[Rfam]
RNA sequence: GAGGAUAAAUUGUGCCGUGCAAUAGAUGCAGCGGACCCGGGGGCAGUACCCGGCGGCUCCACCAAAUCCUUCGCUUCGGCGGAGGUUCUGACGGGGCCGAACCAGGAUCGACGUGUAUUGAAAAGCGGUAUUUUCUUCCGGGCUGAGUAACCCGUUAAAGGCUCAAAACCCACAAGUGCCAAUGACAAUGAAGCACUCGCUCUCGCGGCGUAA
Numbered sequence: 001g002a003g004g005a006u007a008a009a010u011u012g013u014g015c016c017g018u019g020c021a022a023u024a025g026a027u028g029c030a031g032c033g034g035a036c037c038c039g040g041g042g043g044c045a046g047u048a049c050c051c052g053g054c055g056g057c058u059c060c061a062c063c064a065a066a067u068c069c070u071u072c073g074c075u076u077c078g079g080c081g082g083a084g085g086u087u088c089u090g091a092c093g094g095g096g097c098c099g100a101a102c103c104a105g106g107a108u109c110g111a112c113g114u115g116u117a118u119u120g121a122a123a124a125g126c127g128g129u130a131u132u133u134u135c136u137u138c139c140g141g142g143c144u145g146a147g148u149a150a151c152c153c154g155u156u157a158a159a160g161g162c163u164c165a166a167a168a169c170c171c172a173c174a175a176g177u178g179c180c181a182a183u184g185a186c187a188a189u190g191a192a193g194c195a196c197u198c199g200c201u202c203u204c205g206c207g208g209c210g211u212a213a
Stems, first nucleotide, its partner, number of pairs: 001138005015128004027117003031114003037053005054099007139154004
Rfam assigns this 213-nucleotide sequence from Novosphingobium sp. Gsoil 351 to the family "permuted transfer-messenger RNA". Lineage of the source: Bacteria > Pseudomonadati > Alphaproteobacteria > Sphingomonadaceae > Novosphingobium. Rfam describes the family as follows. Bacterial tmRNA, also known as 10Sa RNA or SsrA, is named for its dual tRNA and mRNA-like properties. The family's consensus secondary structure is taken from published work.